A member of the RNA family "Small nucleolar RNA SNORD19" from Crocodylus porosus, 74 nucleotides long. A reference for the family is Huttenhofer et al. (2001), "RNomics: an experimental approach that identifies 201 candidates for novel, small, non-messenger RNAs in mouse", EMBO J. Its family is annotated with RNA processing and nucleolus in the Gene Ontology. A search with the family's covariance model found it, with a score of 54 bits. By type it is a C/D-box small nucleolar RNA. Taxonomically the source falls in Crocodylus (Eukaryota, Eumetazoa, Gnathostomata, Archelosauria).
RNA sequence: GAGCUAUGAGGAAAAUAAAGAAAUCUGAAAUACCGCUGAAUACUGUAAGAUCCAAUUCUGAGCUCAUUUGCUUG
Number, nucleotide and partner (000 for none) at each position: 001g065002a064003g063004c062005u000006a000007u000008g000009a000010g000011g000012a000013a000014a000015a000016u000017a000018a000019a000020g000021a000022a000023a000024u000025c000026u000027g000028a000029a000030a000031u000032a000033c000034c000035g000036c000037u000038g000039a000040a000041u000042a000043c000044u000045g000046u000047a000048a000049g000050a000051u000052c000053c000054a000055a000056u000057u000058c000059u000060g000061a000062g004063c003064u002065c001066a000067u000068u000069u000070g000071c000072u000073u000074g000